[Rfam]
RNA sequence: AUUCAUUGAUAAGAUAUCAAACGUAUAAUAUUGGGGAUAUGGCCCAAAAGUUUCUACCAAGCCGCCUUAAAGGGCUUGACUACGAGCAAAGUGUUAAAUGGG
Number, nucleotide and partner (000 for none) at each position: 001a000002u000003u000004c000005a000006u000007u000008g000009a000010u000011a000012a000013g000014a000015u000016a000017u000018c000019a000020a000021a000022c084023g083024u082025a081026u000027a000028a000029u049030a000031u047032u046033g045034g044035g043036g000037a000038u000039a000040u000041g000042g000043c035044c034045c033046a032047a031048a000049a029050g000051u000052u000053u000054c000055u000056a000057c000058c078059a077060a076061g075062c074063c073064g000065c000066c000067u000068u000069a000070a000071a000072g000073g063074g062075c061076u060077u059078g058079a000080c000081u025082a024083c023084g022085a000086g000087c000088a000089a000090a000091g000092u000093g000094u000095u000096a000097a000098a000099u000100g000101g000102g000
Rfam assigns this 102-nucleotide RNA from Neobacillus rhizophilus to the family "Purine riboswitch aptamer". It scores 75 bits against the family's covariance model. The family's consensus secondary structure is taken from published work. Riboswitches are metabolite binding domains within certain messenger RNAs that serve as precision sensors for their corresponding targets. Clan: Purine riboswitches.